About this RNA
TPP riboswitch aptamer (THI element): a 99-nucleotide RNA from Erysipelatoclostridium sp. AM42-17.

RNA sequence: GUUACUAGCCGGGGGCGCAUGUGCUGAGAUAGGUGAAAACCUUGUCCCUUAAUAUCUGAUCUGGGUAAUACCAGCGUAGAGAGAGCAUCAUGAAUAUAU
Numbered sequence: 001g002u003u004a005c006u007a008g009c010c011g012g013g014g015g016c017g018c019a020u021g022u023g024c025u026g027a028g029a030u031a032g033g034u035g036a037a038a039a040c041c042u043u044g045u046c047c048c049u050u051a052a053u054a055u056c057u058g059a060u061c062u063g064g065g066u067a068a069u070a071c072c073a074g075c076g077u078a079g080a081g082a083g084a085g086c087a088u089c090a091u092g093a094a095u096a097u098a099u
Stems, first nucleotide, its partner, number of pairs: 008086002011049004017024002031042004055080004061074004